Shown here is a 163-nucleotide RNA from Ruminococcus sp. CAG:563, a member of the family "Ribosomal protein L10 leader". A search with the family's covariance model found it, with a score of 44 bits. NCBI's taxonomy places the organism under Bacteria, Bacillati, Clostridia, Eubacteriales, Ruminococcus. From the family's description: This family is a putative r-protein leader autoregulatory structure found in B. subtilis and other low-GC Gram-positive bacteria. It is located in the 5' untranslated regions of mRNAs encoding ribosomal proteins L10 and L12 (rplJ-rplL). A Rho-independent transcription terminator structure that is probably involved in regulation is included at the 3' end.

RNA sequence: UAACUAAGCUGUUCUUUUUCAAAGACAGCAGGUGCAAUCAGCGUAAUGGUUUUAACAGACCGCCUGCCGAGAAUGGGAGCAUACGAUAACCGAUUUUUCGGGUCAAUAUUUGUAUGUCAUAUCCCUGUUCACGGUAAGUGGACAGGGAUUAAUUUUCGUUUAU
Numbered sequence: 001u002a003a004c005u006a007a008g009c010u011g012u013u014c015u016u017u018u019u020c021a022a023a024g025a026c027a028g029c030a031g032g033u034g035c036a037a038u039c040a041g042c043g044u045a046a047u048g049g050u051u052u053u054a055a056c057a058g059a060c061c062g063c064c065u066g067c068c069g070a071g072a073a074u075g076g077g078a079g080c081a082u083a084c085g086a087u088a089a090c091c092g093a094u095u096u097u098u099c100g101g102g103u104c105a106a107u108a109u110u111u112g113u114a115u116g117u118c119a120u121a122u123c124c125c126u127g128u129u130c131a132c133g134g135u136a137a138g139u140g141g142a143c144a145g146g147g148a149u150u151a152a153u154u155u156u157c158g159u160u161u162a163u
Stems, first nucleotide, its partner, number of pairs: 028067006034042002122148010